[Rfam]
RNA sequence: CUACUCCAUCCGUCCCAUAAUAUAAGAAUGUUUUUGACACUGGGUAGUGUCAAAAAUGUUCUUAUAUUAUGGGACGGAGGGAGUAG
Number, nucleotide and partner (000 for none) at each position: 001c000002u000003a084004c083005u082006c000007c080008a000009u078010c077011c076012g000013u074014c073015c072016c071017a070018u000019a068020a067021u066022a065023u064024a063025a062026g061027a060028a059029u058030g057031u056032u055033u054034u053035u052036g051037a050038c049039a048040c047041u046042g000043g000044g000045u000046a041047g040048u039049g038050u037051c036052a035053a034054a033055a032056a031057u030058g029059u028060u027061c026062u025063u024064a023065u022066a021067u020068u019069a000070u017071g016072g015073g014074a013075c000076g011077g010078a009079g000080g007081g000082a005083g004084u003085a000086g000